[Rfam]
Shown here is a 99-nucleotide sequence from Chaetothyriales sp. CBS 135597, a member of the family "Small nucleolar RNA Z13/snr52".
Rfam links the family to the GO terms RNA processing and nucleolus.
It is annotated as a C/D-box small nucleolar RNA.
RNA sequence: GUCCUCUUGAUGAUGAAUUAUUACGGAUGUAAAUCACAGACCUGUUCUGAAGCGCAAAUCCAUGUGGAUAUUUCCGUUGCCUUCCUUCUGAUCAAAGAG
Numbered sequence: 001g002u003c004c005u006c007u008u009g010a011u012g013a014u015g016a017a018u019u020a021u022u023a024c025g026g027a028u029g030u031a032a033a034u035c036a037c038a039g040a041c042c043u044g045u046u047c048u049g050a051a052g053c054g055c056a057a058a059u060c061c062a063u064g065u066g067g068a069u070a071u072u073u074c075c076g077u078u079g080c081c082u083u084c085c086u087u088c089u090g091a092u093c094a095a096a097g098a099g
Stems, first nucleotide, its partner, number of pairs: 004097002024076004